[Rfam]
Notes:
Shown here is a 228-nucleotide part of an RNA from Plasmodiophora brassicae, a member of the family "Eukaryotic large subunit ribosomal RNA". The family's consensus secondary structure is taken from published work. Taxonomically the source falls in Plasmodiophora (Eukaryota, Rhizaria, Phytomyxea, Plasmodiophoridae). It scores 2826 bits against the family's covariance model.
RNA sequence: AAGUCGGCAAAUUAGGUCCGUAACUUCGGGAAAAGGACUGGCUCUAAGGGUUGGGUGACGCUGGGUCCGCUUGUUGAUGCGGUCGCGGGGCAUGCGCUGUGGGUGCCGCAAGGUGCACGCGCGCGCGCCCCUGGCCGUUGAUCGGGCGGAUUCGGGCCCGGGCGUUUCGGCGCCCGGCCCGAUGCCCCUCUCACGAUUAACAACCGACUUAGAACUGGAGCGGACAAG
Numbered sequence: 001a002a003g004u005c006g007g008c009a010a011a012u013u014a015g016g017u018c019c020g021u022a023a024c025u026u027c028g029g030g031a032a033a034a035g036g037a038c039u040g041g042c043u044c045u046a047a048g049g050g051u052u053g054g055g056u057g058a059c060g061c062u063g064g065g066u067c068c069g070c071u072u073g074u075u076g077a078u079g080c081g082g083u084c085g086c087g088g089g090g091c092a093u094g095c096g097c098u099g100u101g102g103g104u105g106c107c108g109c110a111a112g113g114u115g116c117a118c119g120c121g122c123g124c125g126c127g128c129c130c131c132u133g134g135c136c137g138u139u140g141a142u143c144g145g146g147c148g149g150a151u152u153c154g155g156g157c158c159c160g161g162g163c164g165u166u167u168c169g170g171c172g173c174c175c176g177g178c179c180c181g182a183u184g185c186c187c188c189u190c191u192c193a194c195g196a197u198u199a200a201c202a203a204c205c206g207a208c209u210u211a212g213a214a215c216u217g218g219a220g221c222g223g224a225c226a227a228g
Stems, first nucleotide, its partner, number of pairs: 015039005024029001040216002043213006049205005055194004060190001063188003066150003070146004079138004087131005093125004098121004103116005217221001